[Rfam]
RNA sequence: AUGGGGAAAGCCGAAAACCCGAUCAGAGUAGGCA
Numbered sequence: 001a002u003g004g005g006g007a008a009a010g011c012c013g014a015a016a017a018c019c020c021g022a023u024c025a026g027a028g029u030a031g032g033c034a
Base pairs, nucleotide, nucleotide: 002021003020004019005018010033011032012031